[Rfam]
RNA sequence: AUGCCCGCACAUGAUGAGAACUAUGUUGGUAGGGACAUCUGAGACAUUGAUGAAUGCCAACAUAUCUGAGCUGGGUGU
Number, nucleotide and partner (000 for none) at each position: 001a078002u077003g076004c075005c074006c000007g000008c000009a000010c000011a000012u000013g000014a000015u000016g000017a000018g000019a000020a000021c000022u000023a000024u000025g000026u000027u000028g000029g000030u000031a000032g000033g000034g000035a000036c000037a000038u000039c000040u000041g000042a000043g000044a000045c000046a000047u000048u000049g000050a000051u000052g000053a000054a000055u000056g000057c000058c000059a000060a000061c000062a000063u000064a000065u000066c000067u000068g000069a000070g000071c000072u000073g000074g005075g004076u003077g002078u001
This 78-nucleotide sequence from Calyptomena viridis belongs to the Rfam family "Small nucleolar RNA SNORD74". A search with the family's covariance model found it, with a score of 75 bits. It is annotated as a C/D-box small nucleolar RNA. The family is grouped with related families in Rfam's "SNORD74 clan". The organism belongs to Calyptomena, within Eukaryota.